Annotation: Shown here is a 253-nucleotide RNA sequence from Polaribacter sp., a member of the family "permuted transfer-messenger RNA". The family's consensus secondary structure is taken from published work. Taxonomically the source falls in Polaribacter (Bacteria, Pseudomonadati, Flavobacteriia, Flavobacteriaceae).
RNA sequence: GUGAUUGUUUGAGGCAAUCUUGAAGCUAGACAGGACUCGGCUUCAUCGCCGACUGCUCCACCAUGGAUACACAGAGCAUGUGGCCACGUAAUUAAAGGUGUAGUAACCUUGGCAUGUGUAUCCUUAAUGGGGCAGAACGGAUCGACUGAUAGUGUAGGGAAAGUUUAGAUCACCGGCAUGAUACCACCGUUAUCGGGUCCGUUAAAUAGUUGCAAACGAUAAUGCACCUCUUGACUAUGCUCUAGCAGCCUAG
Numbered sequence: 001g002u003g004a005u006u007g008u009u010u011g012a013g014g015c016a017a018u019c020u021u022g023a024a025g026c027u028a029g030a031c032a033g034g035a036c037u038c039g040g041c042u043u044c045a046u047c048g049c050c051g052a053c054u055g056c057u058c059c060a061c062c063a064u065g066g067a068u069a070c071a072c073a074g075a076g077c078a079u080g081u082g083g084c085c086a087c088g089u090a091a092u093u094a095a096a097g098g099u100g101u102a103g104u105a106a107c108c109u110u111g112g113c114a115u116g117u118g119u120a121u122c123c124u125u126a127a128u129g130g131g132g133c134a135g136a137a138c139g140g141a142u143c144g145a146c147u148g149a150u151a152g153u154g155u156a157g158g159g160a161a162a163g164u165u166u167a168g169a170u171c172a173c174c175g176g177c178a179u180g181a182u183a184c185c186a187c188c189g190u191u192a193u194c195g196g197g198u199c200c201g202u203u204a205a206a207u208a209g210u211u212g213c214a215a216a217c218g219a220u221a222a223u224g225c226a227c228c229u230c231u232u233g234a235c236u237a238u239g240c241u242c243u244a245g246c247a248g249c250c251u252a253g
Stems, first nucleotide, its partner, number of pairs: 001173005015163001018160001027151002031148003037052005053135007174189003